A member of the RNA family "tRNA" from Pajaroellobacter abortibovis, 73 nucleotides long. Transfer RNA (tRNA) molecules are approximately 80 nucleotides in length.
[Rfam]
Nucleotides: 073
Base pairs, nucleotide, nucleotide: 001072002071003070004069005068006067007066010025011024012023013022027043028042029041030040031039049065050064051063052062053061
Number, partner (000 for none) and nucleotide at each position: 001072u002071c003070c004069g005068g006067c007066u008000u009000a010025g011024c012023u013022c014000a015000g016000u017000u018000g019000g020000u021000a022013g023012a024011g025010c026000g027043g028042g029041u030040g031039g032000c033000u034000g035000u036000u037000a038000a039031c040030c041029g042028c043027u044000u045000g046000g047000u048000c049065g050064u051063a052062g053061g054000u055000u056000c057000g058000a059000g060000u061053c062052c063051u064050a065049c066007a067006g068005c069004c070003g071002g072001a073000g
By type it is a transfer RNA. A search with the family's covariance model found it, with a score of 66 bits.